[Rfam]
RNA sequence: UGAGGCUGAGGUAGUAGAUUGAAUAGUUGUGGAGCCCUAUCCUCCCUUUGAGCUAACUAUACAAUCUACUGUCUUUCCUAA
Numbered sequence: 001u002g003a004g005g006c007u008g009a010g011g012u013a014g015u016a017g018a019u020u021g022a023a024u025a026g027u028u029g030u031g032g033a034g035c036c037c038u039a040u041c042c043u044c045c046c047u048u049u050g051a052g053c054u055a056a057c058u059a060u061a062c063a064a065u066c067u068a069c070u071g072u073c074u075u076u077c078c079u080a081a
Base pairs, nucleotide, nucleotide: 001081003079004078005077008075009074010073011072012071013070014069015068016067017066018065019064020063021062023060024059025058026057027056032044033043034042045052
The record is an 81-nucleotide RNA sequence from Cochlearius cochlearius, which matches "let-7 microRNA precursor family" in Rfam. Rfam 15.1 lists 8,694 matches to the family in 797 species. The family is grouped with related families in Rfam's "let-7 microRNA precursor clan". A search with the family's covariance model found it, with a score of 65 bits. The literature on the family includes a 2001 paper in Nat Rev Genet by Rougvie, "Control of developmental timing in animals". This family represents the microRNAs (miRNA) let-7 and mir-98. let-7 was identified from a study of developmental timing in C. elegans, and was later shown to be part of a much larger class of non-coding RNAs termed miRNAs.